[Rfam]
Nucleotides: 079
Base pairs, nucleotide, nucleotide: 008032009031010030011029012028013027014026054073055072056071057070058069059068060067061066
Number, partner (000 for none) and nucleotide at each position: 001000a002000a003000g004000c005000c006000u007000a008032a009031g010030a011029u012028a013027c014026a015000c016000g017000g018000c019000a020000a021000u022000u023000g024000c025000c026014u027013g028012u029011a030010u031009c032008u033000u034000a035000a036000c037000c038000u039000c040000c041000c042000u043000g044000u045000u046000g047000g048000a049000c050000u051000u052000a053000u054073g055072g056071c057070c058069g059068a060067g061066c062000a063000u064000c065000u066061g067060c068059u069058c070057g071056g072055c073054c074000u075000u076000u077000u078000u079000u
Shown here is a 79-nucleotide RNA sequence from Pararhodobacter oceanensis, a member of the family "Singlet oxygen resistance RNA X". Rfam's curators write: SorX (RSs2461)like SorY is a singlet oxygen induced sRNA that counteracts oxidative stress by targeting mRNA for a transporter in Rhodobacter. It also has an impact on resistance against organic hydroperoxides. It targets SD sequence of potA mRNA via an aSD sequence. The aSD sequence and some neighbouring nucleotides are identical to the one of SorY (targets takP mRNA). Taxonomically the source falls in Pararhodobacter (Bacteria, Pseudomonadati, Pseudomonadota, Rhodobacterales). The literature on the family includes a 2016 paper in RNA Biol by Peng et al., "Regulation of a polyamine transporter by the conserved 3' UTR-derived sRNA SorX confers resistance to singlet oxygen and organic hydroperoxides in Rhodobacter sphaeroides". Rfam classes the family as a small RNA.